[Rfam]
RNA sequence: GGCGCCUGCACAUCCUCGUCGAAAGGUAUCGCCGCAGGCCGCGUCUAGGAGCCCUGGGAGACCGGGGCUCCUGCUUUU
Numbered sequence: 001g002g003c004g005c006c007u008g009c010a011c012a013u014c015c016u017c018g019u020c021g022a023a024a025g026g027u028a029u030c031g032c033c034g035c036a037g038g039c040c041g042c043g044u045c046u047a048g049g050a051g052c053c054c055u056g057g058g059a060g061a062c063c064g065g066g067g068c069u070c071c072u073g074c075u076u077u078u
Stems, first nucleotide, its partner, number of pairs: 004039006025033002046073012
RNA: Xanthomonas sRNA sX12